[Rfam]
This 358-nucleotide RNA sequence from Mycoplana azooxidifex belongs to the Rfam family "Alphaproteobacteria transfer-messenger RNA". Rfam classes the family as a non-coding RNA gene.
RNA sequence: GACCUUUUCUUGGGCCUCGGAAGCGCCUAUAUCUCUGCUGCUGCCUCGUGCAGCUAUGGCAAUAAACGGGCGGUGUAAUAAACCCAUUGGACCCGGGGGCGGUACCCGGCGCCUCCACCAAAAACCGAUCUUUCGCGAUCGGCUUUUGAUGGGGGCGAAAUAGGAUCGACAAGGGCGUAAAGAUCGACUUUUUGCUCGGCAUUGUACCACCGUUAUCGGGCUAAAAUUGUAGUUGCAAACGACAACUAUGCUGAAGCACGUCUCGCUGCCUAACGGCGGUGCGACACUUCAAAUCAAGUCCUUGCGGGUAGCACUGUAAGGCGGGGUCCGAAGGCACCUGGCAACAGAAGCCUUCACC
Numbered sequence: 001g002a003c004c005u006u007u008u009c010u011u012g013g014g015c016c017u018c019g020g021a022a023g024c025g026c027c028u029a030u031a032u033c034u035c036u037g038c039u040g041c042u043g044c045c046u047c048g049u050g051c052a053g054c055u056a057u058g059g060c061a062a063u064a065a066a067c068g069g070g071c072g073g074u075g076u077a078a079u080a081a082a083c084c085c086a087u088u089g090g091a092c093c094c095g096g097g098g099g100c101g102g103u104a105c106c107c108g109g110c111g112c113c114u115c116c117a118c119c120a121a122a123a124a125c126c127g128a129u130c131u132u133u134c135g136c137g138a139u140c141g142g143c144u145u146u147u148g149a150u151g152g153g154g155g156c157g158a159a160a161u162a163g164g165a166u167c168g169a170c171a172a173g174g175g176c177g178u179a180a181a182g183a184u185c186g187a188c189u190u191u192u193u194g195c196u197c198g199g200c201a202u203u204g205u206a207c208c209a210c211c212g213u214u215a216u217c218g219g220g221c222u223a224a225a226a227u228u229g230u231a232g233u234u235g236c237a238a239a240c241g242a243c244a245a246c247u248a249u250g251c252u253g254a255a256g257c258a259c260g261u262c263u264c265g266c267u268g269c270c271u272a273a274c275g276g277c278g279g280u281g282c283g284a285c286a287c288u289u290c291a292a293a294u295c296a297a298g299u300c301c302u303u304g305c306g307g308g309u310a311g312c313a314c315u316g317u318a319a320g321g322c323g324g325g326g327u328c329c330g331a332a333g334g335c336a337c338c339u340g341g342c343a344a345c346a347g348a349a350g351c352c353u354u355c356a357c358c
Base pairs, nucleotide, nucleotide: 040054041053042052043051044050058196059195060194061193062192068189069188071186072185073184074183083175084174085173087172088171089170093109094108095107096106097105110157111156112155113154114153115152116151197212198211199210202223204221207219208218324339325338326337327336330355331354332353333352334351335350